[Rfam]
RNA sequence: GUCGAGAGGGUGAGGAAUACAAUACCCGUAAGGGGAAUAACUCCAGCCGUCCUUGUGUAAGGCUUACGAACCUCUUGACCGCCCAAU
Numbered sequence: 001g002u003c004g005a006g007a008g009g010g011u012g013a014g015g016a017a018u019a020c021a022a023u024a025c026c027c028g029u030a031a032g033g034g035g036a037a038u039a040a041c042u043c044c045a046g047c048c049g050u051c052c053u054u055g056u057g058u059a060a061g062g063c064u065u066a067c068g069a070a071c072c073u074c075u076u077g078a079c080c081g082c083c084c085a086a087u
Stems, first nucleotide, its partner, number of pairs: 001079009012044001014042001016038001025034003045064004050059001

Rfam assigns this 87-nucleotide sequence from Vitreoscilla sp. C1 to the family "sRNA-Xcc1". Lineage of the source: Bacteria > Pseudomonadati > Betaproteobacteria > Neisseriaceae > Vitreoscilla. By type it is a small RNA. The family's consensus secondary structure was predicted with RNAalifold.